Annotation:
Shown here is a 75-nucleotide RNA from Alligator sinensis, a member of the family "Mammalian CPEB3 ribozyme". The family's consensus secondary structure is taken from published work. A search with the family's covariance model found it, with a score of 37 bits. The organism belongs to Alligator, within Eukaryota.
RNA sequence: GGUGCAAGUUUGAGGCCAUAGCAGAAGGGCUCACAGCACAGUCUGUCAGAUUCCAAUGAACCUGAAAAUGCUGUU
Numbered sequence: 001g002g003u004g005c006a007a008g009u010u011u012g013a014g015g016c017c018a019u020a021g022c023a024g025a026a027g028g029g030c031u032c033a034c035a036g037c038a039c040a041g042u043c044u045g046u047c048a049g050a051u052u053c054c055a056a057u058g059a060a061c062c063u064g065a066a067a068a069u070g071c072u073g074u075u
Base pairs, nucleotide, nucleotide: 014043015042016041020075021074022073023072024071026069027039029037047064048063049062051060052059053058